[Rfam]
About this RNA: A member of the RNA family "mir-3015 microRNA precursor family" from Acyrthosiphon pisum, 57 nucleotides long. Its family is annotated with miRNA-mediated post-transcriptional gene silencing and RISC complex in the Gene Ontology.

RNA sequence: GUUCUUACAGUGUCCGGUUAAAGUUAACCGACACUUUACCGUACAUUGUAAGAACGG
Numbered sequence: 001g002u003u004c005u006u007a008c009a010g011u012g013u014c015c016g017g018u019u020a021a022a023g024u025u026a027a028c029c030g031a032c033a034c035u036u037u038a039c040c041g042u043a044c045a046u047u048g049u050a051a052g053a054a055c056g057g
Base pairs, nucleotide, nucleotide: 001055002054003053004052005051006050007049008048009047010046011045013043015041016040017039018038020036021035023032024031025030
Dot-bracket structure: (((((((((((.(.((((.((.(((....)))..)).)))).).)))))))))))..